[Rfam]
RNA sequence: CGCAGCCGUGUGAAAUUCAGUGCCUGCCCACUCAUGGCAGGUACCGGUCCAGGAGGCUGCCAUAGAAACACUGACUCAUGGGCCCUGAUCGCCUCUGCUGGGCCCAGGGAUAAGUUUGGUUACAGAUACAA
Numbered sequence: 001c002g003c004a005g006c007c008g009u010g011u012g013a014a015a016u017u018c019a020g021u022g023c024c025u026g027c028c029c030a031c032u033c034a035u036g037g038c039a040g041g042u043a044c045c046g047g048u049c050c051a052g053g054a055g056g057c058u059g060c061c062a063u064a065g066a067a068a069c070a071c072u073g074a075c076u077c078a079u080g081g082g083c084c085c086u087g088a089u090c091g092c093c094u095c096u097g098c099u100g101g102g103c104c105c106a107g108g109g110a111u112a113a114g115u116u117u118g119g120u121u122a123c124a125g126a127u128a129c130a131a
Stems, first nucleotide, its partner, number of pairs: 002060004018046001020044009072122005083109005
Shown here is a 131-nucleotide sequence from Myotis lucifugus, a member of the family "Small nucleolar RNA SNORA5".
The base pairs follow the family's consensus structure, which was predicted with RNAfold.
Rfam classes the family as an H/ACA-box small nucleolar RNA.
Its family is annotated with nucleolus and RNA processing in the Gene Ontology.
From the family's description: ACA5 is a member of the H/ACA class of snoRNA that guide the sites of modification of uridines to pseudouridines.
Taxonomically the source falls in Myotis (Eukaryota, Dipnotetrapodomorpha, Boreoeutheria, Laurasiatheria).